Shown here is an 88-nucleotide sequence from Magnusiomyces paraingens, a member of the family "Small nucleolar RNA snR57".
The source organism's lineage runs through Eukaryota, Fungi, Dipodascomycetes, Dipodascales and Magnusiomyces.
The family's RNA type in Rfam is C/D-box small nucleolar RNA.
For this family Rfam cites "A computational screen for methylation guide snoRNAs in yeast" (Lowe and Eddy, Science, 1999).
Rfam links the family to the GO terms nucleolus and RNA processing.
A search with the family's covariance model found it, with a score of 73 bits.
[Rfam]
RNA sequence: AUUUAAGUGAUUAUCUACAAAAAGAUAUCUGAGGAUGUAUAUGCAGGACUACUUGUAUUUAGGAAUUCUUCGUUUAUGAUUUAUAAAU
Numbered sequence: 001a002u003u004u005a006a007g008u009g010a011u012u013a014u015c016u017a018c019a020a021a022a023a024g025a026u027a028u029c030u031g032a033g034g035a036u037g038u039a040u041a042u043g044c045a046g047g048a049c050u051a052c053u054u055g056u057a058u059u060u061a062g063g064a065a066u067u068c069u070u071c072g073u074u075u076a077u078g079a080u081u082u083a084u085a086a087a088u
Base pairs, nucleotide, nucleotide: 001088002087003086004085